[Rfam]
RNA sequence: AUGGCUUCAUUUUGUUCAGUGAACAUUGUUGUUGUAGCUAGGUUAAUUCAAUUCUAGUGGCAUAUUUUUUGGUGAAGCAAUAAAAAUUGUUGCCCUCGCUAUCCGGUGCUUCUUGUUAUGUGGCAUUUGGACGUUGGGUAACUACAUUU
Numbered sequence: 001a002u003g004g005c006u007u008c009a010u011u012u013u014g015u016u017c018a019g020u021g022a023a024c025a026u027u028g029u030u031g032u033u034g035u036a037g038c039u040a041g042g043u044u045a046a047u048u049c050a051a052u053u054c055u056a057g058u059g060g061c062a063u064a065u066u067u068u069u070u071g072g073u074g075a076a077g078c079a080a081u082a083a084a085a086a087u088u089g090u091u092g093c094c095c096u097c098g099c100u101a102u103c104c105g106g107u108g109c110u111u112c113u114u115g116u117u118a119u120g121u122g123g124c125a126u127u128u129g130g131a132c133g134u135u136g137g138g139u140a141a142c143u144a145c146a147u148u149u
Base pairs, nucleotide, nucleotide: 001081002080004078005077008074009073010072011071018066020064021063027062028061029060030059031058032057033056034055037052039050089142090141091140092139093138094137095136097133098132102131103130104129105128106127112120
Overview:
The family of this 149-nucleotide RNA sequence from Papaver somniferum is "Small nucleolar RNA snoR136". For this family Rfam cites "Mining small RNA sequencing data: a new approach to identify small nucleolar RNAs in Arabidopsis" (Chen and Wu, Nucleic Acids Res, 2009). A search with the family's covariance model found it, with a score of 63 bits. It is annotated as an H/ACA-box small nucleolar RNA.